[Rfam]
RNA sequence: UGGCCUGGUUUCCUGCAGGGUGAGCUCAGCCAAGUACCACCCCUCAGUAAGCCUAGAGUAGAGGGGCUGGCAUCCUUUCCUUAAAUUAAGCAAGGAGCCUUAUCCAGGUUGUCCUAGUCUCUUAUUU
Numbered sequence: 001u002g003g004c005c006u007g008g009u010u011u012c013c014u015g016c017a018g019g020g021u022g023a024g025c026u027c028a029g030c031c032a033a034g035u036a037c038c039a040c041c042c043c044u045c046a047g048u049a050a051g052c053c054u055a056g057a058g059u060a061g062a063g064g065g066g067c068u069g070g071c072a073u074c075c076u077u078u079c080c081u082u083a084a085a086u087u088a089a090g091c092a093a094g095g096a097g098c099c100u101u102a103u104c105c106a107g108g109u110u111g112u113c114c115u116a117g118u119c120u121c122u123u124a125u126u127u
Stems, first nucleotide, its partner, number of pairs: 002053003006049002015042001019041004063121005069114002074108003083101002
Source information:
This 127-nucleotide RNA sequence from Macaca fascicularis belongs to the Rfam family "Small Cajal body specific RNA 21". Pairs were carried over by alignment from the consensus structure, which was predicted with RNAalifold. It is annotated as a small Cajal body RNA. From the family's description: scaRNAs are a specific class of small nuclear RNAs which localise to the Cajal bodies and guide the modification of RNA polymerase II transcribed spliceosomal RNAs U1, U2, U4, U5 and U12. ACA68 (SCARNA21) is a member of the H/ACA class of snoRNAs that guide the sites of modification of uridines to pseudouridines. This snoRNA was identified by computational screening and its expression in mouse experimentally verified by Northern blot and primer extension analysis. ACA68 is proposed to guide the pseudouridylation of residue U19 in U12 snRNA. Rfam 15.1 lists 278 matches to the family in 138 species. The literature on the family includes a 2006 paper in RNA by Schattner et al., "A computational screen for mammalian pseudouridylation guide H/ACA RNAs".